[Rfam]
RNA: eL15-Euryarchaeota ribosomal protein leader
RNA sequence: CGGAUAAAUCGUCCGCUGGGAUGUAGCCUUACAAAAAGGCUGAACCAUAAA
Numbered sequence: 001c002g003g004a005u006a007a008a009u010c011g012u013c014c015g016c017u018g019g020g021a022u023g024u025a026g027c028c029u030u031a032c033a034a035a036a037a038g039g040c041u042g043a044a045c046c047a048u049a050a051a
Base pairs, nucleotide, nucleotide: 001015002014003013004012005011017047018046019045025041026040027039028038029037